RNA: mir-9/mir-79 microRNA precursor family
RNA sequence: AUUUUCACCGCUUUGGCGAUUUAGCUGUAUGAUUGUUUUAAUAUUUCAUAAAGCUAGAUUACCAAAGCAUUGAAUUU
Numbered sequence: 001a002u003u004u005u006c007a008c009c010g011c012u013u014u015g016g017c018g019a020u021u022u023a024g025c026u027g028u029a030u031g032a033u034u035g036u037u038u039u040a041a042u043a044u045u046u047c048a049u050a051a052a053g054c055u056a057g058a059u060u061a062c063c064a065a066a067g068c069a070u071u072g073a074a075u076u077u
Stems, first nucleotide, its partner, number of pairs: 001077001004074002007071001010068007018060009028050005